[Rfam]
RNA sequence: GGAUGUGAGGGCGAUCUGACUGCGACAUCUGUCACCCCAUUGAUCGCCAGGGUUGAUUCAGCUGAUCUAGCUGGCUAGGCAGGUGUCCCCUUCCUCCCUCACUGCCCCAUGUGAGUCUCUCCUGAAGCUGCACGCUUGGUUGAAGAGGAUGACCUUCCCCAAUAGAGACAUACUGUUCAUCAGUCAAGGGUAUACAAUAGCUGCGCUCCCCUGCUAGAACCUCCAAACAAGCUAUGAUUCUAUAUGUGCAGCAUUCUGACGCUCUUUGUGGGUUGAUAAGGAUAAAGAUACUAUGAAAAGACAAAUAGAUGGUGGUUCACC
Numbered sequence: 001g002g003a004u005g006u007g008a009g010g011g012c013g014a015u016c017u018g019a020c021u022g023c024g025a026c027a028u029c030u031g032u033c034a035c036c037c038c039a040u041u042g043a044u045c046g047c048c049a050g051g052g053u054u055g056a057u058u059c060a061g062c063u064g065a066u067c068u069a070g071c072u073g074g075c076u077a078g079g080c081a082g083g084u085g086u087c088c089c090c091u092u093c094c095u096c097c098c099u100c101a102c103u104g105c106c107c108c109a110u111g112u113g114a115g116u117c118u119c120u121c122c123u124g125a126a127g128c129u130g131c132a133c134g135c136u137u138g139g140u141u142g143a144a145g146a147g148g149a150u151g152a153c154c155u156u157c158c159c160c161a162a163u164a165g166a167g168a169c170a171u172a173c174u175g176u177u178c179a180u181c182a183g184u185c186a187a188g189g190g191u192a193u194a195c196a197a198u199a200g201c202u203g204c205g206c207u208c209c210c211c212u213g214c215u216a217g218a219a220c221c222u223c224c225a226a227a228c229a230a231g232c233u234a235u236g237a238u239u240c241u242a243u244a245u246g247u248g249c250a251g252c253a254u255u256c257u258g259a260c261g262c263u264c265u266u267u268g269u270g271g272g273u274u275g276a277u278a279a280g281g282a283u284a285a286a287g288a289u290a291c292u293a294u295g296a297a298a299a300g301a302c303a304a305a306u307a308g309a310u311g312g313u314g315g316u317u318c319a320c321c
Base pairs, nucleotide, nucleotide: 001108002107005102006101007100008099009098010097011096013093014092018090024087025086026085027084028083029082030081031080032079033078035074036073037070039068042067043066044065045064046062047061118168119167120166121165122139123138124137125136127135128134140162141161142160147158148157149156201287202286207284210281211280212279222272223271224270227269228268229267230266231265

7SK RNA: a 321-nucleotide RNA from Oceanites oceanicus. The family's RNA type in Rfam is non-coding RNA gene. Clan: 7SK clan. Rfam describes the family as follows. 7SK was discovered as an abundant small nuclear RNA in the mid-70s but a possible function has only recently been suggested. Two independent studies have found that 7SK RNA binds the CDK9/cyclin T complex (known as elongation factor P-TEFb). P-TEFb activates transcription by phosphorylating the C-terminal domain of RNA polymerase II. This process is negatively regulated by the 7SK RNP. The secondary structure of 7SK RNA shown here was proposed by Wasserman and Steitz on the basis of chemical modification and enzymatic cleavage experiments. This family contains a number of annotated pseudogenes and 7SK derived repeats.